Background:
The record is a 71-nucleotide RNA sequence from Poecilia reticulata, which matches "mir-338 microRNA precursor family" in Rfam. For this family Rfam cites "The developmental miRNA profiles of zebrafish as determined by small RNA cloning" (Chen et al., Genes Dev, 2005). Rfam links the family to the GO terms RISC complex and miRNA-mediated post-transcriptional gene silencing. The base pairs follow the family's consensus structure, which was predicted with RNAalifold.
RNA sequence: CUGGGAACAACAUCCUGAUGUUGUCUGGGUGUAUGAAGCAAAAACUCCAGCAUCAGUGAUUUUGUUGCCAG
Numbered sequence: 001c002u003g004g005g006a007a008c009a010a011c012a013u014c015c016u017g018a019u020g021u022u023g024u025c026u027g028g029g030u031g032u033a034u035g036a037a038g039c040a041a042a043a044a045c046u047c048c049a050g051c052a053u054c055a056g057u058g059a060u061u062u063u064g065u066u067g068c069c070a071g
Base pairs, nucleotide, nucleotide: 006066007065008064009063010062012060013059014058015056016055017054018053019052020051021050022049023048